[Rfam]
This 95-nucleotide RNA from Triticum aestivum belongs to the Rfam family "Small nucleolar RNA Z157/R69/R10". It scores 59 bits against the family's covariance model. Its Rfam clan is "SNORD52 clan". The organism belongs to Triticum, within Eukaryota. By type it is a C/D-box small nucleolar RNA. Rfam links the family to the GO terms RNA processing and nucleolus.
RNA sequence: GUUGUAGUGGUGAUGACAAAUUUGUGGACUAGAGUUUCUGAUGCCUCCUCUUCAGUGGCAUCUGCGGACGACCCCUUGGCUGUCUGAGCUCCCCC
Numbered sequence: 001g002u003u004g005u006a007g008u009g010g011u012g013a014u015g016a017c018a019a020a021u022u023u024g025u026g027g028a029c030u031a032g033a034g035u036u037u038c039u040g041a042u043g044c045c046u047c048c049u050c051u052u053c054a055g056u057g058g059c060a061u062c063u064g065c066g067g068a069c070g071a072c073c074c075c076u077u078g079g080c081u082g083u084c085u086g087a088g089c090u091c092c093c094c095c
Stems, first nucleotide, its partner, number of pairs: 001095001004092001006090003035067002038064001042060004047055001